[Rfam]
RNA sequence: GGGGAUGCAUGAUGACAAACACUUUGAACUCUCUCACUGAUUAAAGAUGAAAGUAAAAGUACUGACUUCCCU
Number, nucleotide and partner (000 for none) at each position: 001g072002g071003g070004g069005a068006u000007g066008c000009a000010u000011g000012a000013u000014g000015a000016c000017a000018a000019a000020c000021a000022c000023u000024u000025u000026g000027a000028a000029c000030u000031c000032u000033c000034u000035c000036a000037c000038u000039g000040a000041u000042u000043a000044a000045a000046g000047a000048u000049g000050a000051a000052a000053g000054u000055a000056a000057a000058a000059g000060u000061a000062c000063u000064g000065a000066c007067u000068u005069c004070c003071c002072u001
Shown here is a 72-nucleotide RNA from Aquarana catesbeiana, a member of the family "Small nucleolar RNA SNORD81". The base pairs follow the family's consensus structure, which was predicted with PFOLD. The family is grouped with related families in Rfam's "SNORD26 clan". It scores 54 bits against the family's covariance model. The source organism's lineage runs through Eukaryota, Sarcopterygii, Batrachia, Ranidae and Aquarana. Gene Ontology terms of the family: nucleolus and RNA processing. The family has 22 seed sequences and 317 matches in Rfam 15.1.